[Rfam]
About this RNA
This 93-nucleotide sequence from Muntiacus reevesi belongs to the Rfam family "Small nucleolar RNA SNORD116". The family's RNA type in Rfam is C/D-box small nucleolar RNA. The family has 48 seed sequences and 3,260 matches in Rfam 15.1. The base pairs follow the family's consensus structure, which was predicted with PFOLD. The organism belongs to Muntiacus, within Eukaryota.
RNA sequence: AGUCCAUUAUAUAAAAAUCAUGCUAUAAUCCUUGGAAAAUCUGAACAACAUGAGUGAGAACUCACUACCGUCUCCUCAUCGAAACUGAGGUCC
Numbered sequence: 001a002g003u004c005c006a007u008u009a010u011a012u013a014a015a016a017a018u019c020a021u022g023c024u025a026u027a028a029u030c031c032u033u034g035g036a037a038a039a040u041c042u043g044a045a046c047a048a049c050a051u052g053a054g055u056g057a058g059a060a061c062u063c064a065c066u067a068c069c070g071u072c073u074c075c076u077c078a079u080c081g082a083a084a085c086u087g088a089g090g091u092c093c
Stems, first nucleotide, its partner, number of pairs: 002091003026056002029053002032048003